[Rfam]
Nucleotides: 267
Base pairs, nucleotide, nucleotide: 002267003266004265005264007262008261009260010259011258014221015220016219017218018217019216023074024073025072026071027070028069037053038052039051040050041049080252081251083250084249085248086247095107096106097105098104108123109122110121111120112119113118125193127191131189132188134187135186136185137184141182142181143180144179151177152176153175154174161170162169163168223237224236225235226234227233
Number, partner (000 for none) and nucleotide at each position: 001000g002267g003266a004265u005264g006000u007262u008261c009260u010259g011258a012000a013000g014221a015220c016219c017218u018217g019216c020000u021000c022000g023074c024073u025072a026071g027070g028069c029000c030000a031000c032000g033000c034000a035000c036000g037053g038052a039051g040050g041049a042000c043000a044000u045000g046000c047000g048000u049041u050040c051039c052038u053037c054000a055000c056000g057000g058000g059000c060000c061000c062000c063000g064000c065000g066000c067000c068000c069028g070027c071026c072025u073024a074023g075000g076000g077000g078000a079000a080252a081251g082000u083250c084249c085248c086247c087000g088000g089000a090000c091000c092000g093000c094000c095107g096106g097105c098104a099000g100000a101000g102000a103000g104098u105097g106096c107095c108123g109122g110121g111120c112119g113118c114000u115000g116000c117000c118113g119112c120111g121110c122109c123108c124000c125193c126000g127191c128000c129000c130000g131189c132188c133000g134187c135186c136185g137184c138000c139000g140000c141182c142181u143180c144179a145000c146000a147000a148000c149000u150000c151177c152176c153175g154174c155000c156000g157000a158000g159000a160000c161170g162169c163168c164000u165000g166000c167000g168163g169162g170161c171000c172000g173000a174154g175153c176152g177151g178000a179144u180143g181142a182141g183000c184137g185136c186135g187134g188132g189131g190000c191127g192000g193125g194000c195000u196000c197000u198000c199000g200000u201000c202000a203000c204000g205000g206000c207000c208000a209000c210000a211000g212000a213000g214000a215000c216019g217018c218017a219016g220015g221014u222000a223237g224236c225235g226234c227233g228000g229000c230000a231000g232000g233227c234226g235225c236224g237223c238000c239000a240000a241000c242000a243000g244000a245000a246000c247086g248085g249084g250083g251081c252080u253000c254000a255000c256000u257000c258011u259010c260009a261008g262007g263000c264005c265004a266003u267002c
Shown here is a 267-nucleotide RNA from Camarhynchus parvulus, a member of the family "RNase MRP".
The match comes from Rfam's covariance-model search (133 bits).
Lineage of the source: Eukaryota > Opisthokonta > Sauropsida > Sauria > Camarhynchus.
Its Rfam clan is "RNaseP clan".
The base pairs follow the family's consensus structure, which is taken from published work.
Rfam describes the family as follows. RNase MRP is an enzymatically active ribonucleoprotein with two distinct roles in eukaryotes. In mitochondria it plays a direct role in the initiation of mitochondrial DNA replication. In the nucleus it is involved in precursor rRNA processing, where it cleaves the internal transcribed spacer 1 between 18S and 5.8S rRNAs.
The family's RNA type in Rfam is ribozyme.